[Rfam]
RNA sequence: UCGCCCACAAUGCCUUUCACGGGUUCAGCAAGGAUGCGACCGGGUAGCAGUGUCUUUGUGCACAACCAUUUGGUCGGUCGGCGCAGGCGCCGAAGCUCUUCAUAGGGGCAUCUCUGCUGGAGUCGUGAUCGGCGCGGAUCGCGCUGAUUAGUCGGUUCCUCCAAUGGUCUCCUCGCGCUAACCCCGUAGCGUGUGGUUUUUAGCGGGCUCCAGGCCCGCUUUUUUUU
Numbered sequence: 001u002c003g004c005c006c007a008c009a010a011u012g013c014c015u016u017u018c019a020c021g022g023g024u025u026c027a028g029c030a031a032g033g034a035u036g037c038g039a040c041c042g043g044g045u046a047g048c049a050g051u052g053u054c055u056u057u058g059u060g061c062a063c064a065a066c067c068a069u070u071u072g073g074u075c076g077g078u079c080g081g082c083g084c085a086g087g088c089g090c091c092g093a094a095g096c097u098c099u100u101c102a103u104a105g106g107g108g109c110a111u112c113u114c115u116g117c118u119g120g121a122g123u124c125g126u127g128a129u130c131g132g133c134g135c136g137g138a139u140c141g142c143g144c145u146g147a148u149u150a151g152u153c154g155g156u157u158c159c160u161c162c163a164a165u166g167g168u169c170u171c172c173u174c175g176c177g178c179u180a181a182c183c184c185c186g187u188a189g190c191g192u193g194u195g196g197u198u199u200u201u202a203g204c205g206g207g208c209u210c211c212a213g214g215c216c217c218g219c220u221u222u223u224u225u226u227u
Stems, first nucleotide, its partner, number of pairs: 005167003018127005024121007032113006038075003043070003047066001050063004078093005096107004129150001131148001133146001171196002174193007202220008
Burkholderia sRNA Bp1_Cand871_SIPHT: a 227-nucleotide sequence from Paraburkholderia sp. LEh10. A reference for the family is Khoo et al. (2012), "Computational discovery and RT-PCR validation of novel Burkholderia conserved and Burkholderia pseudomallei unique sRNAs", BMC Genomics. NCBI's taxonomy places the organism under Bacteria, Pseudomonadota, Betaproteobacteria, Burkholderiales, Paraburkholderia. A search with the family's covariance model found it, with a score of 188 bits. By type it is a small RNA.